Description:
This 76-nucleotide sequence from Macaca mulatta belongs to the Rfam family "mir-933 microRNA precursor family". Rfam's curators put it in the seed alignment. The base pairs follow the family's consensus structure, which was predicted with RNAalifold. The organism belongs to Macaca, within Eukaryota.
RNA sequence: CUUGGGUCAGUUCAGAGGUCCUCGGGGCGCGCGUCGAGUCAGCCGUGUGCGCAGGGAGACCUCUCCCACCCACAGU
Dot-bracket structure: ..(((((..(...((((((((((.(.(((((((.(......).))))))).).))).))))))))..)))))....